A member of the RNA family "U5 spliceosomal RNA" from Rhizoctonia solani, 117 nucleotides long. A reference for the family is Zwieb (1997), "The uRNA database", Nucleic Acids Res. Pairs were carried over by alignment from the consensus structure, which is taken from published work.

RNA sequence: AGCAGCAGAGGUGAACACAUAACGUAUUCAACCCUCGCCUUUUACUAGAGUUGACCGUGGGUCUGCCUCAUAAAAUGCUGCUUGCCAAUUUUUCAGCCUAAUGGUCCCUCCAGGACU
Number, nucleotide and partner (000 for none) at each position: 001a000002g000003c080004a079005g078006c077007a000008g000009a068010g067011g066012u065013g064014a000015a062016c061017a000018c059019a058020u000021a000022a000023c000024g000025u000026a000027u000028u054029c053030a052031a051032c050033c000034c048035u047036c000037g000038c000039c000040u000041u000042u000043u000044a000045c000046u000047a035048g034049a000050g032051u031052u030053g029054a028055c000056c000057g000058u019059g018060g000061g016062u015063c000064u013065g012066c011067c010068u009069c000070a000071u000072a000073a000074a000075a000076u000077g006078c005079u004080g003081c000082u000083u000084g000085c000086c000087a000088a000089u000090u000091u000092u000093u000094c000095a000096g000097c000098c000099u000100a000101a000102u000103g117104g116105u115106c114107c000108c000109u000110c000111c000112a000113g000114g106115a105116c104117u103
Rfam classes the family as a spliceosomal small nuclear RNA.